[Rfam]
RNA sequence: AAAAAAAUGCAUAUAGUCACUCGUAUAAUAUUGGAGAUAGGGUCCAAAAGUUUCUACCAAACCGCCGUAAAUGGUUUGACUACGAGAAGGAUUUGAGUUUUG
Numbered sequence: 001a002a003a004a005a006a007a008u009g010c011a012u013a014u015a016g017u018c019a020c021u022c023g024u025a026u027a028a029u030a031u032u033g034g035a036g037a038u039a040g041g042g043u044c045c046a047a048a049a050g051u052u053u054c055u056a057c058c059a060a061a062c063c064g065c066c067g068u069a070a071a072u073g074g075u076u077u078g079a080c081u082a083c084g085a086g087a088a089g090g091a092u093u094u095g096a097g098u099u100u101u102g
Base pairs, nucleotide, nucleotide: 020086021085022084023083024082025081029049031047032046033045034044035043058078059077060076061075062074063073064072
RNA: Purine riboswitch aptamer
Organism: Bacillus sp. MUM 13